A member of the RNA family "small nucleolar RNA snoR143" from Centaurea solstitialis, 153 nucleotides long.
Rfam classes the family as an H/ACA-box small nucleolar RNA.
A search with the family's covariance model found it, with a score of 63 bits.
Lineage of the source: Eukaryota > Viridiplantae > Tracheophyta > Pentapetalae > Centaurea.
Pairs were carried over by alignment from the consensus structure, which was predicted with RNAalifold.
[Rfam]
RNA sequence: UUUUAGUGAUGUGUUAAGUUUAUUUUAUCAAUUUGGUAUUUUGAACUUGACAUUUUGCUGAAGAUUGGGCAGCGGCCAGACAACCGUAGAGAUGGUUUCCACAGAUGAACAGUUAUUCCCAUCUGUUUGUCUACUAAUUUCUAUCUCACAUUA
Numbered sequence: 001u002u003u004u005a006g007u008g009a010u011g012u013g014u015u016a017a018g019u020u021u022a023u024u025u026u027a028u029c030a031a032u033u034u035g036g037u038a039u040u041u042u043g044a045a046c047u048u049g050a051c052a053u054u055u056u057g058c059u060g061a062a063g064a065u066u067g068g069g070c071a072g073c074g075g076c077c078a079g080a081c082a083a084c085c086g087u088a089g090a091g092a093u094g095g096u097u098u099c100c101a102c103a104g105a106u107g108a109a110c111a112g113u114u115a116u117u118c119c120c121a122u123c124u125g126u127u128u129g130u131c132u133a134c135u136a137a138u139u140u141c142u143a144u145c146u147c148a149c150a151u152u153a
Stems, first nucleotide, its partner, number of pairs: 002062005009054001011053001013051010026038002089147007108128002110125003